[Rfam]
RNA sequence: GCGAGAAUGAAGAAGAAAAUCAUUCAGAUUCCCAUUGAUUUGUAAUAAACAUGACAUCUUUAUCCAGCUACUUCUGACUCGG
Numbered sequence: 001g002c003g004a005g006a007a008u009g010a011a012g013a014a015g016a017a018a019a020u021c022a023u024u025c026a027g028a029u030u031c032c033c034a035u036u037g038a039u040u041u042g043u044a045a046u047a048a049a050c051a052u053g054a055c056a057u058c059u060u061u062a063u064c065c066a067g068c069u070a071c072u073u074c075u076g077a078c079u080c081g082g
Stems, first nucleotide, its partner, number of pairs: 002081004

A member of the RNA family "Small nucleolar RNA R12" from Aegilops tauschii, 82 nucleotides long. The family has 9 seed sequences and 992 matches in Rfam 15.1. The literature on the family includes a 2003 paper in Nucleic Acids Res by Chen et al., "The high diversity of snoRNAs in plants: identification and comparative study of 120 snoRNA genes from Oryza sativa". snoR12 is a C/D box small nucleolar RNA, which acts as a methylation guide for 25S ribosomal RNA in plants. snoR12 has been alternatively named snoZ44 in Arabidopsis and snoZ131 in rice.